RNA sequence: GUCUUAUCAAGAGAGAUGGAGGGACUGGCCCGAUGAAAUCUCGGCAACAGGAUGCAUUCACUGUGCCAAUUCCAGUAGCGCAAUUGCUAGAAGAUAAGUC
Numbered sequence: 001g002u003c004u005u006a007u008c009a010a011g012a013g014a015g016a017u018g019g020a021g022g023g024a025c026u027g028g029c030c031c032g033a034u035g036a037a038a039u040c041u042c043g044g045c046a047a048c049a050g051g052a053u054g055c056a057u058u059c060a061c062u063g064u065g066c067c068a069a070u071u072c073c074a075g076u077a078g079c080g081c082a083a084u085u086g087c088u089a090g091a092a093g094a095u096a097a098g099u100c
Base pairs, nucleotide, nucleotide: 001100003098004097005096006095007094008093013042014041015040016039017038021031022030023029025075026074027073028072043067044066045065046064048063049062050059051058052057071092076089077088078087079086080085